[Rfam]
RNA sequence: GCCAUCUUGUCGGGGUGCUAUUUAGGCUGAGAAAUACCCGCACACCUGAUCCGGUUAGUACCGGCGUAGGGAACGAGAGUCACGAGCGU
Numbered sequence: 001g002c003c004a005u006c007u008u009g010u011c012g013g014g015g016u017g018c019u020a021u022u023u024a025g026g027c028u029g030a031g032a033a034a035u036a037c038c039c040g041c042a043c044a045c046c047u048g049a050u051c052c053g054g055u056u057a058g059u060a061c062c063g064g065c066g067u068a069g070g071g072a073a074c075g076a077g078a079g080u081c082a083c084g085a086g087c088g089u
Stems, first nucleotide, its partner, number of pairs: 006077005011040004016034001017027003045070004051064004